RNA sequence: CCCUUAACUAUUAAAAGUUUCGUUUUGGUCCCUUAACUUAUUUUUUGGUUUCAUUUUGAUCCCUUAACUCUAAUACAUUCAUCCUAACAUAAAGGACCAAAGUGGUUGACGGAGGAAGAGUUAAGGGACCAAAACGAAACCAAAAAGUAAGUUAAAGGACCAAAACGAAACUUUUAAUAGUUAAGGGACCAAAACAAAACCAAAAGGUAAGUUAAGGGACCAAAACGAAACUUUUAAUAGUUAAGGGA
Numbered sequence: 001c002c003c004u005u006a007a008c009u010a011u012u013a014a015a016a017g018u019u020u021c022g023u024u025u026u027g028g029u030c031c032c033u034u035a036a037c038u039u040a041u042u043u044u045u046u047g048g049u050u051u052c053a054u055u056u057u058g059a060u061c062c063c064u065u066a067a068c069u070c071u072a073a074u075a076c077a078u079u080c081a082u083c084c085u086a087a088c089a090u091a092a093a094g095g096a097c098c099a100a101a102g103u104g105g106u107u108g109a110c111g112g113a114g115g116a117a118g119a120g121u122u123a124a125g126g127g128a129c130c131a132a133a134a135c136g137a138a139a140c141c142a143a144a145a146a147g148u149a150a151g152u153u154a155a156a157g158g159a160c161c162a163a164a165a166c167g168a169a170a171c172u173u174u175u176a177a178u179a180g181u182u183a184a185g186g187g188a189c190c191a192a193a194a195c196a197a198a199a200c201c202a203a204a205a206g207g208u209a210a211g212u213u214a215a216g217g218g219a220c221c222a223a224a225a226c227g228a229a230a231c232u233u234u235u236a237a238u239a240g241u242u243a244a245g246g247g248a
Base pairs, nucleotide, nucleotide: 002246003245004244005243006242007241008240023225024224025223027221028220029219031217032216033215034214035213036212037211038210039209040208041207042206043205045203046202047201048200049199050198051197
The record is a 248-nucleotide RNA sequence from Medicago truncatula, which matches "MIR2655 microRNA precursor family" in Rfam. A search with the family's covariance model found it, with a score of 189 bits.